This 179-nucleotide RNA from Lachnoclostridium sp. An169 belongs to the Rfam family "6S / SsrS RNA".
[Rfam]
RNA sequence: AAUAACCUGGGAUGUGCGACAACCCUGUAAUUUUGAACCUACAUUAUUUUGAAAGGGAUUCCUACAUUUCUGUAAUAUGCCAGGCCUCCGAUAUGCAGUGGACGGCAGAAAAGCAGAUGCGGUUGCCCACCUAGCAUUGGCUAGGACUCAAAAUACAGGACCGGCAUUUUGGGGGACAA
Numbered sequence: 001a002a003u004a005a006c007c008u009g010g011g012a013u014g015u016g017c018g019a020c021a022a023c024c025c026u027g028u029a030a031u032u033u034u035g036a037a038c039c040u041a042c043a044u045u046a047u048u049u050u051g052a053a054a055g056g057g058a059u060u061c062c063u064a065c066a067u068u069u070c071u072g073u074a075a076u077a078u079g080c081c082a083g084g085c086c087u088c089c090g091a092u093a094u095g096c097a098g099u100g101g102a103c104g105g106c107a108g109a110a111a112a113g114c115a116g117a118u119g120c121g122g123u124u125g126c127c128c129a130c131c132u133a134g135c136a137u138u139g140g141c142u143a144g145g146a147c148u149c150a151a152a153a154u155a156c157a158g159g160a161c162c163g164g165c166a167u168u169u170u171g172g173g174g175g176a177c178a179a
Stems, first nucleotide, its partner, number of pairs: 003176001006173010017163002032153002034150003038145002055128003061122002066118001069117005079106002085101002088098001

The family's consensus secondary structure is taken from published work. The organism belongs to Lachnoclostridium, within Bacteria. A search with the family's covariance model found it, with a score of 56 bits.